[Rfam]
RNA: Small nucleolar RNA snoR136
RNA sequence: UUGGCUUCAUGUUUUUAUUGAGAAGCAUACAUUAAUGAGUCAAAUCAAAUUUGUGUAUGCUGUUUAAUGAAGCCAAAUAUAAAAUGUUCCCCUCGCUAUCCGGUGUCUACUUUUAAUGUUACAUUUGGACGUUGGGAAACUACAAUU
Numbered sequence: 001u002u003g004g005c006u007u008c009a010u011g012u013u014u015u016u017a018u019u020g021a022g023a024a025g026c027a028u029a030c031a032u033u034a035a036u037g038a039g040u041c042a043a044a045u046c047a048a049a050u051u052u053g054u055g056u057a058u059g060c061u062g063u064u065u066a067a068u069g070a071a072g073c074c075a076a077a078u079a080u081a082a083a084a085u086g087u088u089c090c091c092c093u094c095g096c097u098a099u100c101c102g103g104u105g106u107c108u109a110c111u112u113u114u115a116a117u118g119u120u121a122c123a124u125u126u127g128g129a130c131g132u133u134g135g136g137a138a139a140c141u142a143c144a145a146u147u
Stems, first nucleotide, its partner, number of pairs: 001077002003074003008069002012067002017063001020060001026059007034051003086140003090136003094131002099129005108118002